This 84-nucleotide RNA sequence from Nyctibius grandis belongs to the Rfam family "Small nucleolar RNA SNORD103/SNORD85". Gene Ontology terms of the family: RNA processing and nucleolus. NCBI's taxonomy places the organism under Eukaryota, Sarcopterygii, Archosauria, Neoaves, Nyctibius. The literature on the family includes a 2001 paper in EMBO J by Huttenhofer et al., "RNomics: an experimental approach that identifies 201 candidates for novel, small, non-messenger RNAs in mouse". The family has 41 seed sequences and 1,349 matches in Rfam 15.1. Pairs were carried over by alignment from the consensus structure. The family's RNA type in Rfam is C/D-box small nucleolar RNA.
RNA sequence: UCUGGCGAUGACGACACACUUGCCCUCACUGAGAGCAGCGGUCGCUGAUGAGAGCAGUUUGACGCUCAGUGGAGCCGAGCCAGA
Numbered sequence: 001u002c003u004g005g006c007g008a009u010g011a012c013g014a015c016a017c018a019c020u021u022g023c024c025c026u027c028a029c030u031g032a033g034a035g036c037a038g039c040g041g042u043c044g045c046u047g048a049u050g051a052g053a054g055c056a057g058u059u060u061g062a063c064g065c066u067c068a069g070u071g072g073a074g075c076c077g078a079g080c081c082a083g084a
Stems, first nucleotide, its partner, number of pairs: 001084006